[Rfam]
RNA sequence: GAUCACGAUGAUGACUCCAUAAAAUUCAAGCUCAACAGACCGCAGUGCAGUGCUUUCUCUCUUGAGUGAUUGCUUUGCGUGUCGAUAACCCCGCUGAACUGAGUGAUU
Numbered sequence: 001g002a003u004c005a006c007g008a009u010g011a012u013g014a015c016u017c018c019a020u021a022a023a024a025u026u027c028a029a030g031c032u033c034a035a036c037a038g039a040c041c042g043c044a045g046u047g048c049a050g051u052g053c054u055u056u057c058u059c060u061c062u063u064g065a066g067u068g069a070u071u072g073c074u075u076u077g078c079g080u081g082u083c084g085a086u087a088a089c090c091c092c093g094c095u096g097a098a099c100u101g102a103g104u105g106a107u108u
Stems, first nucleotide, its partner, number of pairs: 001108006
RNA: Small nucleolar RNA Z107/R87
Organism: Medicago truncatula